[Rfam]
RNA: Small nucleolar RNA Z102/R77
RNA sequence: CACUGAUAUGCAAAUAUAUAUAAGAUUCCUUAUUGGUUUGAUAGCCGAUAUUAUGGCAUCGACCUUGUAUUAGCUCUAUCUGAUCGUUU
Numbered sequence: 001c002a003c004u005g006a007u008a009u010g011c012a013a014a015u016a017u018a019u020a021u022a023a024g025a026u027u028c029c030u031u032a033u034u035g036g037u038u039u040g041a042u043a044g045c046c047g048a049u050a051u052u053a054u055g056g057c058a059u060c061g062a063c064c065u066u067g068u069a070u071u072a073g074c075u076c077u078a079u080c081u082g083a084u085c086g087u088u089u
Base pairs, nucleotide, nucleotide: 002088004086005085040060044057045056046055